[Rfam]
The family of this 211-nucleotide RNA from Vulpes vulpes is "Small nucleolar RNA U3". The family's consensus secondary structure is taken from published work. From the family's description: Small nucleolar RNAs (snoRNAs) are involved in the processing and modification of rRNA in the nucleolus.
RNA sequence: AAGACUGUAUUUUCAGGGAUCAUUUCUAUAGUUUGUUACUGAUGAAGUUUUUCUGAACAUCUAGAACCUCAGAAACCAUGAGGAGGGCGCAGUAUUCCCUCCUGAGUGUGAUGCCAGCUCGUGGUGUUGCUUCUGCAACUGCCAUUUGUCAUAGAUAAUUGUCCUUCUCUUCCUUUGGGAGAGCAAGAGGGAGAGGAUGGCGCUGAGUGGU
Dot-bracket structure: .((..((.(((...((((.....))))..))).))...))........(((...........))).........(((((.............(((((.(((((..(((........((...(((((((((....))))).))))...))..........)))..(((((((((...))))))).))..))))).))))).......)))))